RNA sequence: UCAUGAAGCAUUGCACCCAGCGUCUGGUCUGCCAGACAUUGUACCUGGAGCUUUUUUGUUUUUCUAAUUAAAAUGGGUU
Numbered sequence: 001u002c003a004u005g006a007a008g009c010a011u012u013g014c015a016c017c018c019a020g021c022g023u024c025u026g027g028u029c030u031g032c033c034a035g036a037c038a039u040u041g042u043a044c045c046u047g048g049a050g051c052u053u054u055u056u057u058g059u060u061u062u063u064c065u066a067a068u069u070a071a072a073a074u075g076g077g078u079u
Base pairs, nucleotide, nucleotide: 005054006053007052008051009050017048018047019046020045022037023036024035025034026033
This 79-nucleotide sequence from Gasterosteus aculeatus belongs to the Rfam family "U1A polyadenylation inhibition element (PIE)".
This family represents the U1A polyadenylation inhibition element (PIE). PIE is a regulatory RNA which is responsible for the regulation of the length of the polyA tail of the U1A pre-mRNA. The PIE is located in the U1A mRNA 3' UTR. PIE adopts a U-shaped structure, with binding sites for a single U1A protein at each bend and when complexed with the two proteins it blocks activity of poly(A) polymerase (PAP), and inhibits its activity.
Pairs were carried over by alignment from the consensus structure, which is taken from published work.
Its family is annotated with regulation of mRNA polyadenylation in the Gene Ontology.